[Rfam]
RNA sequence: GGCACAAACUCGUAGUGGAGUAGCUUAGUAGGGUCAGAUGAUCCUUCUAAUCUACUCUACUUCUAAUUUGGGCUC
Number, nucleotide and partner (000 for none) at each position: 001g074002g073003c072004a000005c070006a069007a068008a067009c000010u000011c000012g063013u000014a061015g060016u059017g058018g057019a056020g055021u054022a053023g052024c000025u050026u049027a048028g047029u000030a045031g000032g043033g042034u041035c040036a000037g000038a000039u000040g035041a034042u033043c032044c000045u030046u000047c028048u027049a026050a025051u000052c023053u022054a021055c020056u019057c018058u017059a016060c015061u014062u000063c012064u000065a000066a000067u008068u007069u006070g005071g000072g003073c002074u001075c000
This 75-nucleotide sequence from Haemonchus placei belongs to the Rfam family "mir-5928 microRNA precursor family". A search with the family's covariance model found it, with a score of 67 bits. Rfam links the family to the GO terms RISC complex and miRNA-mediated post-transcriptional gene silencing.